Source information
Rfam assigns this 71-nucleotide RNA sequence from Candidatus Sulfobium mesophilum to the family "int-alpA RNA". Rfam's curators write: Acidobacteria (1 example), Planctomycetes (1 example), Proteobacteria. A search with the family's covariance model found it, with a score of 46 bits. Lineage of the source: Bacteria > Nitrospirota > Nitrospiria > Nitrospirales > Candidatus Sulfobium. The base pairs follow the family's consensus structure, which is taken from published work.
RNA sequence: UCAGGCCCUACCCUACGCGGGGGGAAAAGCCGCUAUCUCCGGCGGCCUGGGCCUGAUAGUUUUUAGACAGG
Numbered sequence: 001u002c003a004g005g006c007c008c009u010a011c012c013c014u015a016c017g018c019g020g021g022g023g024g025a026a027a028a029g030c031c032g033c034u035a036u037c038u039c040c041g042g043c044g045g046c047c048u049g050g051g052c053c054u055g056a057u058a059g060u061u062u063u064u065a066g067a068c069a070g071g
Stems, first nucleotide, its partner, number of pairs: 001056008011023003029046005036071003